RNA sequence: GCGCUGAAAGUGAGAGUUGGAUGAAGACAAACUAGUUCAACAGAUGGACAAUUGUGGUCCGUUGAUCAGCUUGUUUUCCUCCAAUAUCUCACCUUCGGUCG
Dot-bracket structure: ...(((((..((((.((((((.((((((((.((..................................)).)))))))).))))))..))))..)))))...
Numbered sequence: 001g002c003g004c005u006g007a008a009a010g011u012g013a014g015a016g017u018u019g020g021a022u023g024a025a026g027a028c029a030a031a032c033u034a035g036u037u038c039a040a041c042a043g044a045u046g047g048a049c050a051a052u053u054g055u056g057g058u059c060c061g062u063u064g065a066u067c068a069g070c071u072u073g074u075u076u077u078c079c080u081c082c083a084a085u086a087u088c089u090c091a092c093c094u095u096c097g098g099u100c101g
Stems, first nucleotide, its partner, number of pairs: 004098005011091004016085006023078008032069002